Rfam assigns this 130-nucleotide RNA from Prolemur simus to the family "U4atac minor spliceosomal RNA". On this family, see Marz et al., J Mol Evol 2008: "Evolution of spliceosomal snRNA genes in metazoan animals". The family is grouped with related families in Rfam's "U4 clan". It is annotated as a spliceosomal small nuclear RNA.
RNA sequence: UAAACCCUUUUCUUAGGGUUGCGCUACUGUCCAAUGACUGCCUAGUGAGGCCGGUACUGCAAACGCCUACACAACACACCCACAUCAACUACAGCUUUGCUUUCUUUACCUUGGUGCAAUUUUUGGAAAA
Numbered sequence: 001u002a003a004a005c006c007c008u009u010u011u012c013u014u015a016g017g018g019u020u021g022c023g024c025u026a027c028u029g030u031c032c033a034a035u036g037a038c039u040g041c042c043u044a045g046u047g048a049g050g051c052c053g054g055u056a057c058u059g060c061a062a063a064c065g066c067c068u069a070c071a072c073a074a075c076a077c078a079c080c081c082a083c084a085u086c087a088a089c090u091a092c093a094g095c096u097u098u099g100c101u102u103u104c105u106u107u108a109c110c111u112u113g114g115u116g117c118a119a120u121u122u123u124u125g126g127a128a129a130a
Stems, first nucleotide, its partner, number of pairs: 006018004021060003026055004031050002039045001083116005090108002093105002
Pairs were carried over by alignment from the consensus structure, which is taken from published work. From the family's description: U4atac is an essential component of the minor U12-type spliceosome complex which is required for removal of the rarer class of eukaryotic introns (AT-AC, U12-type). Lineage of the source: Eukaryota > Teleostomi > Theria > Lemuridae > Prolemur.